[Rfam]
The family of this 86-nucleotide RNA from Paracandidimonas soli is "SucA RNA motif". Lineage of the source: Bacteria > Pseudomonadota > Betaproteobacteria > Burkholderiales > Paracandidimonas.
RNA sequence: CCGCUAUCCGCUAUCCGGUCUGGCCGUGUCGCGGAAGGUUUUUUCCCUGCAUCGUAAACGGAUGAGACAUCCGGAUAGGUGAAGCG
Numbered sequence: 001c002c003g004c005u006a007u008c009c010g011c012u013a014u015c016c017g018g019u020c021u022g023g024c025c026g027u028g029u030c031g032c033g034g035a036a037g038g039u040u041u042u043u044u045c046c047c048u049g050c051a052u053c054g055u056a057a058a059c060g061g062a063u064g065a066g067a068c069a070u071c072c073g074g075a076u077a078g079g080u081g082a083a084g085c086g
Stems, first nucleotide, its partner, number of pairs: 002086003007035005016026004037046002050081004059073006
By type it is a cis-regulatory element. A search with the family's covariance model found it, with a score of 50 bits. The literature on the family includes a 2007 paper in Nucleic Acids Res by Weinberg et al., "Identification of 22 candidate structured RNAs in bacteria using the CMfinder comparative genomics pipeline".